[Rfam]
The family of this 58-nucleotide RNA sequence from Aliiglaciecola sp. M165 is "Pseudomonas sRNA P26".
It is annotated as a non-coding RNA gene.
For this family Rfam cites "Identification of 17 Pseudomonas aeruginosa sRNAs and prediction of sRNA-encoding genes in 10 diverse pathogens using the bioinformatic tool sRNAPredict2" (Livny et al., Nucleic Acids Res, 2006).
Taxonomically the source falls in Aliiglaciecola (Bacteria, Pseudomonadati, Alteromonadales, Alteromonadaceae).
RNA sequence: AUCUGACAGAUUACUUGCCUGAAAAGGCUUGGGCUGGUGAUUAUUUAAUCACCAGCCU
Numbered sequence: 001a002u003c004u005g006a007c008a009g010a011u012u013a014c015u016u017g018c019c020u021g022a023a024a025a026g027g028c029u030u031g032g033g034c035u036g037g038u039g040a041u042u043a044u045u046u047a048a049u050c051a052c053c054a055g056c057c058u
Stems, first nucleotide, its partner, number of pairs: 017028003032057010